RNA sequence: UGGUAGUAGCAACUAUUCAAAUGAGAACUUUGAAGACUGACGUGGAGAAAGGUUCCAUGUGAACAGCUAUUGGACAUGGGUCAGUCAGUCCUAAGAUGCGCUCGAAAGAGGGUUCCGAACGAGGAAUAUCUAUAUUCAUUCAUAUUUAUAUUCCAUCAAAUCGAAAGGGAAACAAGUUAAUAUUCUUGUACUAAGUGUCGGAGAUUGUUUGAUUUCAUGUCAAACAUAUGUGGUAACACAAACAAGCUCAAAUACAUCACAAGUGGUCCUGGAAAGAGUUUUCUCUUCUUUGUUACUUCAUCAGACGACCCUGGAAUCAGUUCAACUGGAGAUAGGGUUCAAAUGAAGGUAAAGAGUAGCCGUUCUUGCUACUUCCUCGGUGCAUCAUUUGUGAUCCUUGAAAAUUUGAGCGAGAUAAUCAAUUUCGCACUUAUCUGUACUCUAAACCGCAUCAGGUCUCCAAGGUGAAAAGCCUCUAGUCAAU
Numbered sequence: 001u002g003g004u005a006g007u008a009g010c011a012a013c014u015a016u017u018c019a020a021a022u023g024a025g026a027a028c029u030u031u032g033a034a035g036a037c038u039g040a041c042g043u044g045g046a047g048a049a050a051g052g053u054u055c056c057a058u059g060u061g062a063a064c065a066g067c068u069a070u071u072g073g074a075c076a077u078g079g080g081u082c083a084g085u086c087a088g089u090c091c092u093a094a095g096a097u098g099c100g101c102u103c104g105a106a107a108g109a110g111g112g113u114u115c116c117g118a119a120c121g122a123g124g125a126a127u128a129u130c131u132a133u134a135u136u137c138a139u140u141c142a143u144a145u146u147u148a149u150a151u152u153c154c155a156u157c158a159a160a161u162c163g164a165a166a167g168g169g170a171a172a173c174a175a176g177u178u179a180a181u182a183u184u185c186u187u188g189u190a191c192u193a194a195g196u197g198u199c200g201g202a203g204a205u206u207g208u209u210u211g212a213u214u215u216c217a218u219g220u221c222a223a224a225c226a227u228a229u230g231u232g233g234u235a236a237c238a239c240a241a242a243c244a245a246g247c248u249c250a251a252a253u254a255c256a257u258c259a260c261a262a263g264u265g266g267u268c269c270u271g272g273a274a275a276g277a278g279u280u281u282u283c284u285c286u287u288c289u290u291u292g293u294u295a296c297u298u299c300a301u302c303a304g305a306c307g308a309c310c311c312u313g314g315a316a317u318c319a320g321u322u323c324a325a326c327u328g329g330a331g332a333u334a335g336g337g338u339u340c341a342a343a344u345g346a347a348g349g350u351a352a353a354g355a356g357u358a359g360c361c362g363u364u365c366u367u368g369c370u371a372c373u374u375c376c377u378c379g380g381u382g383c384a385u386c387a388u389u390u391g392u393g394a395u396c397c398u399u400g401a402a403a404a405u406u407u408g409a410g411c412g413a414g415a416u417a418a419u420c421a422a423u424u425u426c427g428c429a430c431u432u433a434u435c436u437g438u439a440c441u442c443u444a445a446a447c448c449g450c451a452u453c454a455g456g457u458c459u460c461c462a463a464g465g466u467g468a469a470a471a472g473c474c475u476c477u478a479g480u481c482a483a484u
Stems, first nucleotide, its partner, number of pairs: 016034006035481004044461004050441002055079006064072002086437003090168002095162002099111001101110003121153002172189005192433004218429003222425001223423001229240004247410006256395004261390007269380003273291005296348005308338006317329004355373006447456002463475004
Shown here is a 484-nucleotide part of an RNA from Rotaria sordida, a member of the family "Eukaryotic large subunit ribosomal RNA". The family's consensus secondary structure is taken from published work. Its family is annotated with ribosome and structural constituent of ribosome in the Gene Ontology. The match comes from Rfam's covariance-model search (2842 bits).